[Rfam]
RNA sequence: UGAGCAUGCCUUUUAGGCAUCCUCUCCCAAAACUUUCACGGGCCACCUUCGGGUGGCCCUUUUUUUAGCCUAAA
Numbered sequence: 001u002g003a004g005c006a007u008g009c010c011u012u013u014u015a016g017g018c019a020u021c022c023u024c025u026c027c028c029a030a031a032a033c034u035u036u037c038a039c040g041g042g043c044c045a046c047c048u049u050c051g052g053g054u055g056g057c058c059c060u061u062u063u064u065u066u067a068g069c070c071u072a073a074a
Stems, first nucleotide, its partner, number of pairs: 008018004040059008
RNA: Makes More Granules Regulator RNA (mmgR)
Organism: Sphingopyxis sp. QXT-31